[Rfam]
RNA sequence: UUGCCCAUCGGGGCCACGGAUACCUGACCAUU
Number, nucleotide and partner (000 for none) at each position: 001u000002u000003g014004c013005c012006c011007a000008u000009c000010g000011g006012g005013g004014c003015c000016a000017c026018g025019g024020a000021u000022a000023c000024c019025u018026g017027a000028c000029c000030a000031u000032u000
Shown here is a 32-nucleotide RNA sequence from Cricetulus griseus, a member of the family "XIST RNA A repeat". By type it is a small RNA. Rfam 15.1 lists 900 matches to the family in 145 species.